A member of the RNA family "TPP riboswitch aptamer (THI element)" from Nocardiopsis dassonvillei, 108 nucleotides long. Its family is annotated with thiamine pyrophosphate binding in the Gene Ontology.
RNA sequence: CGAAACCGACAGGGGAGCGCGCGAGCGCUGAGAGUGCGGCACCAGGCCGCAGACCCUUACACACCUGAUCUGGGUCAUGCCAGCGAAGGAAGUCGUAGGAACCGUCAC
Numbered sequence: 001c002g003a004a005a006c007c008g009a010c011a012g013g014g015g016a017g018c019g020c021g022c023g024a025g026c027g028c029u030g031a032g033a034g035u036g037c038g039g040c041a042c043c044a045g046g047c048c049g050c051a052g053a054c055c056c057u058u059a060c061a062c063a064c065c066u067g068a069u070c071u072g073g074g075u076c077a078u079g080c081c082a083g084c085g086a087a088g089g090a091a092g093u094c095g096u097a098g099g100a101a102c103c104g105u106c107a108c
Stems, first nucleotide, its partner, number of pairs: 007095004011057004017028004035051005064089003070083004